[Rfam]
RNA sequence: CUUGAUCGGACCUACGGAUAUUCAGAUCAUCCUCGGGAAGGUGCGCCCUUUCCUACGCCACCCCCCGAGGCU
Numbered sequence: 001c002u003u004g005a006u007c008g009g010a011c012c013u014a015c016g017g018a019u020a021u022u023c024a025g026a027u028c029a030u031c032c033u034c035g036g037g038a039a040g041g042u043g044c045g046c047c048c049u050u051u052c053c054u055a056c057g058c059c060a061c062c063c064c065c066c067g068a069g070g071c072u
Base pairs, nucleotide, nucleotide: 003029004028005027006026007025008023009022010021037054040051041050043048

The record is a 72-nucleotide sequence from Mycolicibacterium llatzerense, which matches "Actinobacteria sRNA Ms_AS-8" in Rfam. It scores 61 bits against the family's covariance model. The source organism's lineage runs through Bacteria, Bacillati, Actinomycetota, Mycobacterium and Mycobacterium (subgen. Mycolicibacterium).